Eukaryotic small subunit ribosomal RNA: a 157-nucleotide part of an RNA from Lachnellula suecica. Taxonomically the source falls in Lachnellula (Eukaryota, leotiomyceta, sordariomyceta, Helotiales). The base pairs follow the family's consensus structure, which is taken from published work. Gene Ontology terms of the family: ribosome and structural constituent of ribosome.
RNA sequence: CACCGCCCGUCGCUACUACCGAUUGAAUGGUUAAGUGAGACUUUCGGACUGGCCUAGGAAUAGUGGCAACACUAAUCUCGGGCUGGAAAGUUGUUCAAACUUGGUCAUUUAGAGGAAGUAAAAGUCGUAACAAGGUUUCAUUCUGAACAGUUCCUUC
Numbered sequence: 001c002a003c004c005g006c007c008c009g010u011c012g013c014u015a016c017u018a019c020c021g022a023u024u025g026a027a028u029g030g031u032u033a034a035g036u037g038a039g040a041c042u043u044u045c046g047g048a049c050u051g052g053c054c055u056a057g058g059a060a061u062a063g064u065g066g067c068a069a070c071a072c073u074a075a076u077c078u079c080g081g082g083c084u085g086g087a088a089a090g091u092u093g094u095u096c097a098a099a100c101u102u103g104g105u106c107a108u109u110u111a112g113a114g115g116a117a118g119u120a121a122a123a124g125u126c127g128u129a130a131c132a133a134g135g136u137u138u139c140a141u142u143c144u145g146a147a148c149a150g151u152u153c154c155u156u157c
Stems, first nucleotide, its partner, number of pairs: 003134001005131001008127002011124001014120004019115002023111001025110012039096002042093001045090001049086007057078003061074004